[Rfam]
RNA: GA-cis RNA
Organism: Eubacterium sp. CAG:161
RNA sequence: UAUAGGAGGAAACAAAUGAACGAAGUUCAUUUUCAGGAAUGUUUCCGACGACUUGCCGCUGACCGGAGGGAGGGGGCGUUACAAUUU
Numbered sequence: 001u002a003u004a005g006g007a008g009g010a011a012a013c014a015a016a017u018g019a020a021c022g023a024a025g026u027u028c029a030u031u032u033u034c035a036g037g038a039a040u041g042u043u044u045c046c047g048a049c050g051a052c053u054u055g056c057c058g059c060u061g062a063c064c065g066g067a068g069g070g071a072g073g074g075g076g077c078g079u080u081a082c083a084a085u086u087u
Stems, first nucleotide, its partner, number of pairs: 008046006015031006055077003059073002063069002